[Rfam]
RNA sequence: AAUAAAAUUUGGCAAAAUUAUCGAAAGAUAAUGACGCAAAGCUAUAGGGGCUUAACCAAACGGAAAGCCAGCCAGUUGCAUGC
Numbered sequence: 001a002a003u004a005a006a007a008u009u010u011g012g013c014a015a016a017a018u019u020a021u022c023g024a025a026a027g028a029u030a031a032u033g034a035c036g037c038a039a040a041g042c043u044a045u046a047g048g049g050g051c052u053u054a055a056c057c058a059a060a061c062g063g064a065a066a067g068c069c070a071g072c073c074a075g076u077u078g079c080a081u082g083c
Base pairs, nucleotide, nucleotide: 012037013036017032018031019030020029021028022027040077041076042075043074047073048072049069050068051067056063057062
Dot-bracket structure: ...........((...((((((....))))))...))..((((...(((((....((....))...)))..))))))......

Record summary
A member of the RNA family "c-di-GMP-I riboswitch aptamer" from Acetobacterium woodii, 83 nucleotides long. Lineage of the source: Bacteria > Bacillati > Clostridia > Acetobacterium > Acetobacterium woodii. Gene Ontology term of the family: cyclic-di-GMP binding. Pairs were carried over by alignment from the consensus structure, which is taken from published work.